[Rfam]
RNA sequence: CUUUAUUUAGUAAGUAUUUGCUAAAUAAUCGACUCUCUAGACUAACGUUAACUUUCGCCGUGAUUGACACCGAAGGCUAGCGUUUUUUU
Numbered sequence: 001c002u003u004u005a006u007u008u009a010g011u012a013a014g015u016a017u018u019u020g021c022u023a024a025a026u027a028a029u030c031g032a033c034u035c036u037c038u039a040g041a042c043u044a045a046c047g048u049u050a051a052c053u054u055u056c057g058c059c060g061u062g063a064u065u066g067a068c069a070c071c072g073a074a075g076g077c078u079a080g081c082g083u084u085u086u087u088u089u
Stems, first nucleotide, its partner, number of pairs: 003028010044084007052076006060070003
The family of this 89-nucleotide sequence from Granulicatella elegans is "23S methyl RNA motif". Gene Ontology term of the family: regulation of gene expression. The match comes from Rfam's covariance-model search (51 bits). Pairs were carried over by alignment from the consensus structure, which is taken from published work. By type it is a cis-regulatory element.